[Rfam]
RNA sequence: CCGGUACCGGUUCACGCAUCGCGAUGCGACCCGGCGACC
Numbered sequence: 001c002c003g004g005u006a007c008c009g010g011u012u013c014a015c016g017c018a019u020c021g022c023g024a025u026g027c028g029a030c031c032c033g034g035c036g037a038c039c
Stems, first nucleotide, its partner, number of pairs: 003039003007034004015028005

Rfam assigns this 39-nucleotide sequence from Phytomonospora endophytica to the family "L31-Actinobacteria ribosomal protein leader". The match comes from Rfam's covariance-model search (49 bits). Clan: Ribosomal Protein L31 Leader clan. Rfam classes the family as a cis-regulatory leader.